Notes: Rfam assigns this 230-nucleotide part of an RNA from Aureimonas endophytica to the family "Bacterial large subunit ribosomal RNA".
RNA sequence: GACUUAGUCUGGCGAGCGAGCUUAAGCCGAUAGGUGGAGGCGCAGCGAAAGCGAGUCCGAAAUGGGCGCUUUGAGUUCGUCGGAUUAGACCCGAAACCGAGUGAUCUAGCCAUGAGCAGGCUGAAGGUGCGGUAACACGCACUGGAGGGCCGAACCCGCAUCUGUUGCAAUAGAUUGGGAUGACUUGUGGCUAGGGGUGAAAGGCCAAUCAAACUCGGAAAUAGCUGGUU
Dot-bracket structure: ....(((((((((((((..((((..(((....)))..))))...((....))..((((.....)))).......)))))))))))))..((.(...((((((...((((((((((((.((((...((((((......))))))....))))...(((..((((........)))).)))..).))))))))))).(((.....)))......))))))......).))..